[Rfam]
The record is a 288-nucleotide RNA from Octodon degus, which matches "Mason-Pfizer monkey virus packaging signal" in Rfam. Rfam classes the family as a cis-regulatory element. Rfam describes the family as follows. This family represents a group of sequences that are related to the Mason-Pfizer monkey virus (MPMV) packaging signal. The source organism's lineage runs through Eukaryota, Metazoa, Tetrapoda, Euarchontoglires and Octodon.
RNA sequence: UGGCACCAAUGUGGGGCACCUGCUAUGGAGGAUUCAACGAUGGAAUCAUCUGAGAGAGCCGGCAAGAGAGAAAGUAAAAGAGGCCCAUGCUGCAGUUGCCUGCUGUGCAGUCUGAACCUUUGUAAGUGGACGGAACCCCUUCCCCCUUCCCUUCAGCAAUGGGACACGCAUUAAGUGAACCUGAGAUAUUUGUAGAAAGUUUGAGUAAAGCAUUAAAGGCAUGAGGAGUAAAGGUUAAAAUUAAGAAUUUGUGUCAAUAUUUUGAAUAUAUUAAACACAUUUGCCCAU
Numbered sequence: 001u002g003g004c005a006c007c008a009a010u011g012u013g014g015g016g017c018a019c020c021u022g023c024u025a026u027g028g029a030g031g032a033u034u035c036a037a038c039g040a041u042g043g044a045a046u047c048a049u050c051u052g053a054g055a056g057a058g059c060c061g062g063c064a065a066g067a068g069a070g071a072a073a074g075u076a077a078a079a080g081a082g083g084c085c086c087a088u089g090c091u092g093c094a095g096u097u098g099c100c101u102g103c104u105g106u107g108c109a110g111u112c113u114g115a116a117c118c119u120u121u122g123u124a125a126g127u128g129g130a131c132g133g134a135a136c137c138c139c140u141u142c143c144c145c146c147u148u149c150c151c152u153u154c155a156g157c158a159a160u161g162g163g164a165c166a167c168g169c170a171u172u173a174a175g176u177g178a179a180c181c182u183g184a185g186a187u188a189u190u191u192g193u194a195g196a197a198a199g200u201u202u203g204a205g206u207a208a209a210g211c212a213u214u215a216a217a218g219g220c221a222u223g224a225g226g227a228g229u230a231a232a233g234g235u236u237a238a239a240a241u242u243a244a245g246a247a248u249u250u251g252u253g254u255c256a257a258u259a260u261u262u263u264g265a266a267u268a269u270a271u272u273a274a275a276c277a278c279a280u281u282u283g284c285c286c287a288u
Stems, first nucleotide, its partner, number of pairs: 006028003011023003032046004079120002083117001087111002091107005126167003172215003175211002222264005228258002232250005273288001278283001
Dot-bracket structure: .....(((..(((.......)))..)))...((((.......))))................................((..(...((..(((((.......)))))..)).....).)).....(((....................................)))....(((((.................................)).)))......(((((.((..(((((.........)))))......)).)))))........(....(....)....)